Notes: Shown here is a 69-nucleotide sequence from Symbiodinium sp. CCMP2592, a member of the family "Tombus virus defective interfering (DI) RNA region 3". This family represents region 3 of the defective interfering (DI) RNA element of the Tombus viruses and is found in the 3' UTR. This family has been found to enhance DI RNA accumulation by approximately 10-fold as well as mediating viral replication. It is annotated as a cis-regulatory element. Gene Ontology term of the family: viral genome replication. The source organism's lineage runs through Eukaryota, Sar, Alveolata, Suessiales and Symbiodinium. It scores 37 bits against the family's covariance model. A reference for the family is Ray and White (2003), "An internally located RNA hairpin enhances replication of Tomato bushy stunt virus RNAs", J Virol.
RNA sequence: AGCCAAUACUACAGAAUCUUCAAUCUUGUUUUGUGAAUAUUAGUAAUCACUAGCAUGGUAUGCGAGUGC
Numbered sequence: 001a002g003c004c005a006a007u008a009c010u011a012c013a014g015a016a017u018c019u020u021c022a023a024u025c026u027u028g029u030u031u032u033g034u035g036a037a038u039a040u041u042a043g044u045a046a047u048c049a050c051u052a053g054c055a056u057g058g059u060a061u062g063c064g065a066g067u068g069c
Stems, first nucleotide, its partner, number of pairs: 011034007048068004053063001